[Rfam]
RNA sequence: AGGUGUGUAAGGAGUGAAGGAAAGCUCUCGGGGUCGAAACAUGGCAAGACUCCCGGGGGCUUUUUCUU
Numbered sequence: 001a002g003g004u005g006u007g008u009a010a011g012g013a014g015u016g017a018a019g020g021a022a023a024g025c026u027c028u029c030g031g032g033g034u035c036g037a038a039a040c041a042u043g044g045c046a047a048g049a050c051u052c053c054c055g056g057g058g059g060c061u062u063u064u065u066c067u068u
Stems, first nucleotide, its partner, number of pairs: 021063005028056005033050003
Overview
This 68-nucleotide RNA sequence from Gloeocapsa sp. PCC 73106 belongs to the Rfam family "Cyano-1 RNA". The match comes from Rfam's covariance-model search (51 bits). The family's RNA type in Rfam is small RNA.